[Rfam]
RNA sequence: CCUUCAAUUCUUUCUAUGUUGUUAC
Numbered sequence: 001c002c003u004u005c006a007a008u009u010c011u012u013u014c015u016a017u018g019u020u021g022u023u024a025c
Stems, first nucleotide, its partner, number of pairs: 005021004
Background
Rfam assigns this 25-nucleotide RNA from Staphylothermus marinus to the family "CRISPR RNA direct repeat element". A search with the family's covariance model found it, with a score of 38 bits. The family has 3 seed sequences and 138 matches in Rfam 15.1. Its family is annotated with defense response in the Gene Ontology. The source organism's lineage runs through Archaea, Thermoproteati, Desulfurococcaceae, Staphylothermus and Staphylothermus marinus.